[Rfam]
RNA sequence: AUCGGAUGGGACACUUUAUAGUACAACGAAUCUGGACAGGAAGCAUAUCCGGAUUCGUUGUACUAUAAAGUGUUUCGUCCGGU
Numbered sequence: 001a002u003c004g005g006a007u008g009g010g011a012c013a014c015u016u017u018a019u020a021g022u023a024c025a026a027c028g029a030a031u032c033u034g035g036a037c038a039g040g041a042a043g044c045a046u047a048u049c050c051g052g053a054u055u056c057g058u059u060g061u062a063c064u065a066u067a068a069a070g071u072g073u074u075u076c077g078u079c080c081g082g083u
Base pairs, nucleotide, nucleotide: 001083002082003081004080005079006078007077008076010074011073012072013071014070015069016068018066019065020064021063022062023061024060025059026058027057028056029055030054031053032052033051034050035049036048038046
RNA: MIR814 microRNA precursor family